[Rfam]
RNA sequence: GUUUGGUUGUGCGUGAGGGAUAGAGGCGGUAUCCUUUUUUGCCACUUUGUGUGGCAAAAAAGAUAUAGCCGAAAGCCCGACCCGUA
Numbered sequence: 001g002u003u004u005g006g007u008u009g010u011g012c013g014u015g016a017g018g019g020a021u022a023g024a025g026g027c028g029g030u031a032u033c034c035u036u037u038u039u040u041g042c043c044a045c046u047u048u049g050u051g052u053g054g055c056a057a058a059a060a061a062g063a064u065a066u067a068g069c070c071g072a073a074a075g076c077c078c079g080a081c082c083c084g085u086a
Stems, first nucleotide, its partner, number of pairs: 017078003021074001026069002031064003037059008
A member of the RNA family "Flavo-1 RNA" from Ornithobacterium rhinotracheale, 86 nucleotides long. By type it is a small RNA. Taxonomically the source falls in Ornithobacterium rhinotracheale (Bacteria, Flavobacteriia, Flavobacteriales, Weeksellaceae). It scores 52 bits against the family's covariance model.